[Rfam]
RNA sequence: UAGAAUAAUGUAGGUAAGGGAAGUCGGCAAAACCGAUCCGUAACUUCGGGAUAAGGAUUGGCUCUGAGGAGCGUGGCGGAUCGGGUUCGGGUCGUCGUAGAAGCGUAGGCGGUGCUGGCGACACCCCGGCCGUCGCCCGUGCGCCCGGUCUCCGGACCGGGAGCCUCGAGGCGGUCGCGGGCCCGUCGCCGUCCGCCGACCGUGGAACCACCGAGCUUCGGUCGCUGGCCGCGUCGCGGCCGGCCGUCCGCCCCGGCGUCGGUUCGCCGUCGCCGGGCGGUCCGGCCGCCGCGCCGUCGGCCGCGUAGCCGGAUCGACCGCCAUGUAACGGUCAACUCAGAACUGGCACGGACCAGGGGAAUCCGACUGUCUAAUUAAAACAAAGCAUCGCGAUGGCCCGGGACGGGUGUUGACGCGAUGUGAUUUCUGCCCAGUGCUCUGAAUGUCAACGUGAAGAAAUUCAAGCAAGCGCGGGUAAACGGCAGGAGUAACUAUGACUCUUUUAAGGUAGCCAAAUGCCUCGUCAUCUAAUUAGUGACGCGCAUGAAUGGAUUAACGAGAUUCUCACUGUCCCUAUCUACUAUCUAGCGAAACCACAG
Numbered sequence: 001u002a003g004a005a006u007a008a009u010g011u012a013g014g015u016a017a018g019g020g021a022a023g024u025c026g027g028c029a030a031a032a033c034c035g036a037u038c039c040g041u042a043a044c045u046u047c048g049g050g051a052u053a054a055g056g057a058u059u060g061g062c063u064c065u066g067a068g069g070a071g072c073g074u075g076g077c078g079g080a081u082c083g084g085g086u087u088c089g090g091g092u093c094g095u096c097g098u099a100g101a102a103g104c105g106u107a108g109g110c111g112g113u114g115c116u117g118g119c120g121a122c123a124c125c126c127c128g129g130c131c132g133u134c135g136c137c138c139g140u141g142c143g144c145c146c147g148g149u150c151u152c153c154g155g156a157c158c159g160g161g162a163g164c165c166u167c168g169a170g171g172c173g174g175u176c177g178c179g180g181g182c183c184c185g186u187c188g189c190c191g192u193c194c195g196c197c198g199a200c201c202g203u204g205g206a207a208c209c210a211c212c213g214a215g216c217u218u219c220g221g222u223c224g225c226u227g228g229c230c231g232c233g234u235c236g237c238g239g240c241c242g243g244c245c246g247u248c249c250g251c252c253c254c255g256g257c258g259u260c261g262g263u264u265c266g267c268c269g270u271c272g273c274c275g276g277g278c279g280g281u282c283c284g285g286c287c288g289c290c291g292c293g294c295c296g297u298c299g300g301c302c303g304c305g306u307a308g309c310c311g312g313a314u315c316g317a318c319c320g321c322c323a324u325g326u327a328a329c330g331g332u333c334a335a336c337u338c339a340g341a342a343c344u345g346g347c348a349c350g351g352a353c354c355a356g357g358g359g360a361a362u363c364c365g366a367c368u369g370u371c372u373a374a375u376u377a378a379a380a381c382a383a384a385g386c387a388u389c390g391c392g393a394u395g396g397c398c399c400g401g402g403a404c405g406g407g408u409g410u411u412g413a414c415g416c417g418a419u420g421u422g423a424u425u426u427c428u429g430c431c432c433a434g435u436g437c438u439c440u441g442a443a444u445g446u447c448a449a450c451g452u453g454a455a456g457a458a459a460u461u462c463a464a465g466c467a468a469g470c471g472c473g474g475g476u477a478a479a480c481g482g483c484a485g486g487a488g489u490a491a492c493u494a495u496g497a498c499u500c501u502u503u504u505a506a507g508g509u510a511g512c513c514a515a516a517u518g519c520c521u522c523g524u525c526a527u528c529u530a531a532u533u534a535g536u537g538a539c540g541c542g543c544a545u546g547a548a549u550g551g552a553u554u555a556a557c558g559a560g561a562u563u564c565u566c567a568c569u570g571u572c573c574c575u576a577u578c579u580a581c582u583a584u585c586u587a588g589c590g591a592a593a594c595c596a597c598a599g
Stems, first nucleotide, its partner, number of pairs: 001587004010581007018573003035059005044049001060344002063341006069333002072330002075322005082316002084158003088154004097146001103142004108137007116129001118127001120125001345349001357566007364558002368382003385421008396408004425552003429483003434480002436476004441472001444471003452463004484502006503507001523539005
RNA: Eukaryotic large subunit ribosomal RNA, nucleotides 2208 to 2806
Organism: Aphis glycines